[Rfam]
RNA sequence: GGCAACGGUGAUGAGUCCUACAGACCUGUAAUGACUCCUGCGGAGAUGAUCGCAUGGUCAAAGAACAUCUAAGGGACUGAGUUGUG
Number, nucleotide and partner (000 for none) at each position: 001g000002g085003c084004a083005a082006c081007g000008g000009u000010g000011a000012u000013g000014a000015g000016u000017c000018c000019u000020a000021c000022a000023g000024a000025c000026c000027u000028g000029u000030a000031a000032u000033g000034a000035c000036u000037c000038c000039u000040g000041c000042g000043g000044a000045g000046a000047u000048g000049a000050u000051c000052g000053c000054a000055u000056g000057g000058u000059c000060a000061a000062a000063g000064a000065a000066c000067a000068u000069c000070u000071a000072a000073g000074g000075g000076a000077c000078u000079g000080a000081g006082u005083u004084g003085u002086g000

This 86-nucleotide sequence from Leersia perrieri belongs to the Rfam family "Small nucleolar RNA SNORD25". The family is grouped with related families in Rfam's "SNORD25 clan". The family's consensus secondary structure was predicted with PFOLD. Taxonomically the source falls in Leersia (Eukaryota, Tracheophyta, Petrosaviidae, Poaceae). For this family Rfam cites "Identification of 10 novel snoRNA gene clusters from Arabidopsis thaliana" (Qu et al., Nucleic Acids Res, 2001). The family has 12 seed sequences and 985 matches in Rfam 15.1. Gene Ontology terms of the family: nucleolus and RNA processing.